A member of the RNA family "S10-Clostridia ribosomal protein leader" from Paraliobacillus ryukyuensis, 102 nucleotides long. On this family, see Eckert and Weinberg, BMC Microbiol 2020: "Discovery of 20 novel ribosomal leader candidates in bacteria and archaea". Lineage of the source: Bacteria > Bacillati > Bacillota > Bacilli > Paraliobacillus.

[Rfam]
RNA sequence: UAAAGGCGAUGAUGCGGAAGGUUGUUGGCACACCCGGCCCCUUUGCCAUGGCGGGGUGCUAAAGAAAUUUUCGCGGAGAAUGUCUAUUAAAAAAAUGGGCGA
Numbered sequence: 001u002a003a004a005g006g007c008g009a010u011g012a013u014g015c016g017g018a019a020g021g022u023u024g025u026u027g028g029c030a031c032a033c034c035c036g037g038c039c040c041c042u043u044u045g046c047c048a049u050g051g052c053g054g055g056g057u058g059c060u061a062a063a064g065a066a067a068u069u070u071u072c073g074c075g076g077a078g079a080a081u082g083u084c085u086a087u088u089a090a091a092a093a094a095a096u097g098g099g100c101g102a
Stems, first nucleotide, its partner, number of pairs: 014074003018071006081101008